[Rfam]
RNA sequence: UGUCUCCUCCAUCCUCUGAAAAGAUGGAUUACGCCCCGAAUCGCAAGGUCCGGGGCGUUUUUU
Numbered sequence: 001u002g003u004c005u006c007c008u009c010c011a012u013c014c015u016c017u018g019a020a021a022a023g024a025u026g027g028a029u030u031a032c033g034c035c036c037c038g039a040a041u042c043g044c045a046a047g048g049u050c051c052g053g054g055g056c057g058u059u060u061u062u063u
Stems, first nucleotide, its partner, number of pairs: 008028006033056006040049001